[Rfam]
The record is a 114-nucleotide RNA from Tianweitania populi, which matches "rpsB sRNA" in Rfam.
A search with the family's covariance model found it, with a score of 46 bits.
RNA sequence: CACACACGGACUUUGGUGUUCUGCCGGGAGAUAUCCGGCAAAGACCUCCGGUGGCGGCGGGUUCAGGCCUGGUCGUCAAGGUCCGUGGAGGCCCAACCGGAAAGGACAAAAACA
Numbered sequence: 001c002a003c004a005c006a007c008g009g010a011c012u013u014u015g016g017u018g019u020u021c022u023g024c025c026g027g028g029a030g031a032u033a034u035c036c037g038g039c040a041a042a043g044a045c046c047u048c049c050g051g052u053g054g055c056g057g058c059g060g061g062u063u064c065a066g067g068c069c070u071g072g073u074c075g076u077c078a079a080g081g082u083c084c085g086u087g088g089a090g091g092c093c094c095a096a097c098c099g100g101a102a103a104g105g106a107c108a109a110a111a112a113c114a
Base pairs, nucleotide, nucleotide: 001090003088005087006086007085008084009083010082011081015046016045024038025037027035053077054076055075056074057073058072